RNA sequence: GUGCCUGCGGUAUGAACAGGUCCCUGACAUACAAUACCAUUUUAUUCACUUUGUCAGCUGAUAUUAUGCUUUCAGCUGAUGAUUAAGGAUGGGAAAGUU
Numbered sequence: 001g002u003g004c005c006u007g008c009g010g011u012a013u014g015a016a017c018a019g020g021u022c023c024c025u026g027a028c029a030u031a032c033a034a035u036a037c038c039a040u041u042u043u044a045u046u047c048a049c050u051u052u053g054u055c056a057g058c059u060g061a062u063a064u065u066a067u068g069c070u071u072u073c074a075g076c077u078g079a080u081g082a083u084u085a086a087g088g089a090u091g092g093g094a095a096a097g098u099u
Stems, first nucleotide, its partner, number of pairs: 037092005053080008
Dot-bracket structure: ....................................(((((...........((((((((............)))))))).......))))).......
Rfam assigns this 99-nucleotide RNA sequence from Panicum virgatum to the family "Small nucleolar RNA snoR99". It is annotated as an H/ACA-box small nucleolar RNA. A reference for the family is Marker et al. (2002), "Experimental RNomics: identification of 140 candidates for small non-messenger RNAs in the plant Arabidopsis thaliana", Curr Biol. Rfam 15.1 lists 733 matches to the family in 222 species.